A member of the RNA family "SAM riboswitch aptamer (S box leader)" from Pedobacter sp. BAL39, 110 nucleotides long. NCBI's taxonomy places the organism under Bacteria, Pseudomonadati, Sphingobacteriia, Sphingobacteriales, Pedobacter. Rfam's curators write: The SAM riboswitch is found upstream of a number of genes which code for proteins involved in methionine or cysteine biosynthesis in Gram-positive bacteria.
[Rfam]
RNA sequence: UGCUUAUAGAGAAAGACGGAGGGAUUAGACCCUGCGAAGUCUUAGCAACCUGUGCUUACAAGGUGCUACAUUCUACCGGGACCGGCAUACUGGCCACCGAAAGAUAAGUU
Numbered sequence: 001u002g003c004u005u006a007u008a009g010a011g012a013a014a015g016a017c018g019g020a021g022g023g024a025u026u027a028g029a030c031c032c033u034g035c036g037a038a039g040u041c042u043u044a045g046c047a048a049c050c051u052g053u054g055c056u057u058a059c060a061a062g063g064u065g066c067u068a069c070a071u072u073c074u075a076c077c078g079g080g081a082c083c084g085g086c087a088u089a090c091u092g093g094c095c096a097c098c099g100a101a102a103g104a105u106a107a108g109u110u
Stems, first nucleotide, its partner, number of pairs: 002109006013043005021032003026075004044067004049063002051060003071102001076099001078097001